The record is a 409-nucleotide RNA from Planctomicrobium piriforme, which matches "Bacterial RNase P class A" in Rfam.
Rfam's curators write: Ribonuclease P (RNase P) is a ubiquitous endoribonuclease, found in archaea, bacteria and eukarya as well as chloroplasts and mitochondria. Its best characterised activity is the generation of mature 5'-ends of tRNAs by cleaving the 5'-leader elements of precursor-tRNAs. Cellular RNase Ps are ribonucleoproteins.
NCBI's taxonomy places the organism under Bacteria, Planctomycetota, Planctomycetales, Planctomycetaceae, Planctomicrobium.
RNA sequence: AGAGUGGGCCAGGUGAUCGCUCUUGUUCGCAAGGGAGGAAAGUCCGGGCUCCGCAGGGCACGGUGGUGGAUAACGUCCACCGUCCGCGAGGACAGGGAAAGUGCCACAGAAAAUAUACCGCCGAUGGCGCGGCGGACGUGCAAACGACGCCGUUUAGCCACACACUUCAGGUGUGUGGCGGCACAGGUAAGGUUGAAAUGGUGCGGUAAGAGCGCACCGCGGAACUGGCGACAGUUCUGGCAGGGUAAACCCCACCGGGAGCAAGACCAAGCAGGAGGAACCCCGCAAGGGGACGAAGCGGCCCGUUUCGUCUGACCUCCGGGUCGGUCGCGUCGAGGCGGGCGAGCAAUCCCCGCCCCAGAGAAAUGAUCACCCCCGACAAAACCCGGCUUAUCGGCCCGCUCUGGAA
Numbered sequence: 001a002g003a004g005u006g007g008g009c010c011a012g013g014u015g016a017u018c019g020c021u022c023u024u025g026u027u028c029g030c031a032a033g034g035g036a037g038g039a040a041a042g043u044c045c046g047g048g049c050u051c052c053g054c055a056g057g058g059c060a061c062g063g064u065g066g067u068g069g070a071u072a073a074c075g076u077c078c079a080c081c082g083u084c085c086g087c088g089a090g091g092a093c094a095g096g097g098a099a100a101g102u103g104c105c106a107c108a109g110a111a112a113a114u115a116u117a118c119c120g121c122c123g124a125u126g127g128c129g130c131g132g133c134g135g136a137c138g139u140g141c142a143a144a145c146g147a148c149g150c151c152g153u154u155u156a157g158c159c160a161c162a163c164a165c166u167u168c169a170g171g172u173g174u175g176u177g178g179c180g181g182c183a184c185a186g187g188u189a190a191g192g193u194u195g196a197a198a199u200g201g202u203g204c205g206g207u208a209a210g211a212g213c214g215c216a217c218c219g220c221g222g223a224a225c226u227g228g229c230g231a232c233a234g235u236u237c238u239g240g241c242a243g244g245g246u247a248a249a250c251c252c253c254a255c256c257g258g259g260a261g262c263a264a265g266a267c268c269a270a271g272c273a274g275g276a277g278g279a280a281c282c283c284c285g286c287a288a289g290g291g292g293a294c295g296a297a298g299c300g301g302c303c304c305g306u307u308u309c310g311u312c313u314g315a316c317c318u319c320c321g322g323g324u325c326g327g328u329c330g331c332g333u334c335g336a337g338g339c340g341g342g343c344g345a346g347c348a349a350u351c352c353c354c355g356c357c358c359c360a361g362a363g364a365a366a367u368g369a370u371c372a373c374c375c376c377c378g379a380c381a382a383a384a385c386c387c388g389g390c391u392u393a394u395c396g397g398c399c400c401g402c403u404c405u406g407g408a409a
Stems, first nucleotide, its partner, number of pairs: 001405010011394001012374007020035006040392003044389005049261004056304004061257005066080005081095001082093004096252002101250002103246003118192002120188003125183002128180003200218006219241001220239008265329004274320005295309005337357006344351002